[Rfam]
RNA sequence: GUUGGGAUGAUGGAGAGCACCGUUUGGAUUCCCAUUGAUUUCUAAUCGAAAUGUGAUCUUUAACAAGCUAUUUCUGAUCUGAC
Numbered sequence: 001g002u003u004g005g006g007a008u009g010a011u012g013g014a015g016a017g018c019a020c021c022g023u024u025u026g027g028a029u030u031c032c033c034a035u036u037g038a039u040u041u042c043u044a045a046u047c048g049a050a051a052u053g054u055g056a057u058c059u060u061u062a063a064c065a066a067g068c069u070a071u072u073u074c075u076g077a078u079c080u081g082a083c
Stems, first nucleotide, its partner, number of pairs: 001083005
RNA: Small nucleolar RNA R12
Organism: Zizania palustris